RNA: nhaA-I RNA
RNA sequence: GGGUGCUGGCGUUGCAUGUCGCGACGCCGCAGGUUCAAGCGAUGGUCGGGCCGCCACG
Numbered sequence: 001g002g003g004u005g006c007u008g009g010c011g012u013u014g015c016a017u018g019u020c021g022c023g024a025c026g027c028c029g030c031a032g033g034u035u036c037a038a039g040c041g042a043u044g045g046u047c048g049g050g051c052c053g054c055c056a057c058g
Base pairs, nucleotide, nucleotide: 005030006029008028009027010026011025012024013023014022015021040058041057043056044055045054046053